[Rfam]
RNA sequence: GGCUCUGUGAUUGUAUGCUCAAUUCGGGCAAUAUACGCUAUUCUGAAAUCAUUCCUACAUGAGGUGAAAUCUGAAAAAUAUGAGAGCU
Number, nucleotide and partner (000 for none) at each position: 001g088002g087003c086004u085005c084006u000007g000008u000009g000010a000011u000012u000013g000014u000015a000016u000017g000018c000019u000020c000021a000022a000023u000024u000025c000026g000027g000028g000029c000030a000031a000032u000033a000034u000035a000036c000037g000038c000039u000040a000041u000042u000043c000044u000045g000046a000047a000048a000049u000050c000051a000052u000053u000054c000055c000056u000057a000058c000059a000060u000061g000062a000063g000064g000065u000066g000067a000068a000069a000070u000071c000072u000073g000074a000075a000076a000077a000078a000079u000080a000081u000082g000083a000084g005085a004086g003087c002088u001